[Rfam]
RNA sequence: AAAACUAUUAACUAAAUCCGCACAUAUACCGUCACAUGGGUCAGGGUGCUCCCAACGGAUACUUGAAUCCGAACCGGAGUUGAUCGAUGGGGUAUAUGGAGGCCUAAC
Number, nucleotide and partner (000 for none) at each position: 001a000002a000003a000004a000005c000006u000007a000008u000009u000010a000011a000012c000013u000014a000015a000016a000017u000018c000019c000020g000021c000022a000023c098024a097025u096026a095027u094028a093029c092030c091031g000032u000033c000034a000035c089036a088037u087038g000039g085040g084041u083042c082043a081044g000045g000046g000047u000048g080049c079050u078051c077052c076053c000054a000055a000056c000057g000058g000059a000060u000061a000062c000063u000064u000065g000066a000067a000068u000069c000070c000071g000072a000073a000074c000075c000076g052077g051078a050079g049080u048081u043082g042083a041084u040085c039086g000087a037088u036089g035090g000091g030092g029093u028094a027095u026096a025097u024098g023099g000100a000101g000102g000103c000104c000105u000106a000107a000108c000